A member of the RNA family "serC leader", 52 nucleotides long. About the family: This family is a putative regulatory RNA structure that is found upstream of the serC-serA operon in some alpha-proteobacteria. The final stem of the structure overlaps the ribosome binding site of the serC reading frame. The family's RNA type in Rfam is cis-regulatory leader. A reference for the family is Corbino et al. (2005), "Evidence for a second class of S-adenosylmethionine riboswitches and other regulatory RNA motifs in alpha-proteobacteria", Genome Biol. It is one of the family's seed sequences.

RNA sequence: CGGUGGGCUACCUCUCCCCAACGAGAGGCAUUUAUCUGGAAGGAUAGGAUAA
Numbered sequence: 001c002g003g004u005g006g007g008c009u010a011c012c013u014c015u016c017c018c019c020a021a022c023g024a025g026a027g028g029c030a031u032u033u034a035u036c037u038g039g040a041a042g043g044a045u046a047g048g049a050u051a052a
Stems, first nucleotide, its partner, number of pairs: 011028006032047006